[Rfam]
RNA: Small nucleolar RNA SNORD22
Organism: Acipenser ruthenus
RNA sequence: UCCCAGUGAUGAACCCUGCACACGUCUUACGCACUGAACUGGGACCAGAACCUGCGAAGGUGAACCCACUGGUGCCGUCAGUGCAAGAAGGGGAGGGCUUGUUGGGGUUUCCAACUGUCUGACGGGAC
Numbered sequence: 001u002c003c004c005a006g007u008g009a010u011g012a013a014c015c016c017u018g019c020a021c022a023c024g025u026c027u028u029a030c031g032c033a034c035u036g037a038a039c040u041g042g043g044a045c046c047a048g049a050a051c052c053u054g055c056g057a058a059g060g061u062g063a064a065c066c067c068a069c070u071g072g073u074g075c076c077g078u079c080a081g082u083g084c085a086a087g088a089a090g091g092g093g094a095g096g097g098c099u100u101g102u103u104g105g106g107g108u109u110u111c112c113a114a115c116u117g118u119c120u121g122a123c124g125g126g127a128c
Stems, first nucleotide, its partner, number of pairs: 001127004